Purine riboswitch aptamer: a 102-nucleotide RNA sequence from Paenibacillus antarcticus. About the family: Riboswitches are metabolite binding domains within certain messenger RNAs that serve as precision sensors for their corresponding targets. Allosteric rearrangement of mRNA structure is mediated by ligand binding, and this results in modulation of gene expression. A class of riboswitches that selectively recognises guanine and becomes saturated at concentrations as low as 5 nM. In Bacillus subtilis, this mRNA motif is located on at least five separate transcriptional units that together encode 17 genes that are mostly involved in purine transport and purine nucleotide biosynthesis. NCBI's taxonomy places the organism under Bacteria, Bacillati, Bacilli, Paenibacillaceae, Paenibacillus.

RNA sequence: AUAUAACUCAUUUAAUGAUCUCGUAUAAAUCUGGGAAUAGGGCCCGGAAGUCUCUACCUGAACACCGUAAAUGUUCGGACUACGGGGGAAUACUAUCGAAAC
Number, nucleotide and partner (000 for none) at each position: 001a000002u000003a000004u000005a000006a000007c000008u000009c000010a000011u000012u000013u000014a000015a000016u000017g000018a000019u087020c086021u085022c084023g083024u082025a081026u000027a000028a000029a000030u048031c047032u046033g045034g044035g043036a000037a000038u000039a000040g000041g000042g000043c035044c034045c033046g032047g031048a030049a000050g000051u000052c000053u000054c000055u000056a000057c000058c078059u077060g076061a075062a074063c073064a072065c000066c000067g000068u000069a000070a000071a000072u064073g063074u062075u061076c060077g059078g058079a000080c000081u025082a024083c023084g022085g021086g020087g019088g000089a000090a000091u000092a000093c000094u000095a000096u000097c000098g000099a000100a000101a000102c000
About this RNA: Rfam 15.1 lists 4,097 matches to the family in 1,411 species. Gene Ontology term of the family: purine nucleobase biosynthetic process.